RNA sequence: UGUCCCUGUCCUAGGUAGAGUGGCAUCUGGUUGGUGGUGCCUAUCUCAUAUCAGCCAGGGACAAAUCAACCCCUUGUUUAUCCAGCUUUGCUUUUGGUCUAUGUCCAUGCCUGGUUCAUGCCUUGGAGACAUGG
Numbered sequence: 001u002g003u004c005c006c007u008g009u010c011c012u013a014g015g016u017a018g019a020g021u022g023g024c025a026u027c028u029g030g031u032u033g034g035u036g037g038u039g040c041c042u043a044u045c046u047c048a049u050a051u052c053a054g055c056c057a058g059g060g061a062c063a064a065a066u067c068a069a070c071c072c073c074u075u076g077u078u079u080a081u082c083c084a085g086c087u088u089u090g091c092u093u094u095u096g097g098u099c100u101a102u103g104u105c106c107a108u109g110c111c112u113g114g115u116u117c118a119u120g121c122c123u124u125g126g127a128g129a130c131a132u133g134g
Base pairs, nucleotide, nucleotide: 001063002062003061004060005059006058007057008056011054012053014051018047019046020045022041023040024039025038026037027036075129077127078126079125080124090121091120095118096117097116099114100113101112103110104109
RNA: Small nucleolar RNA SNORA48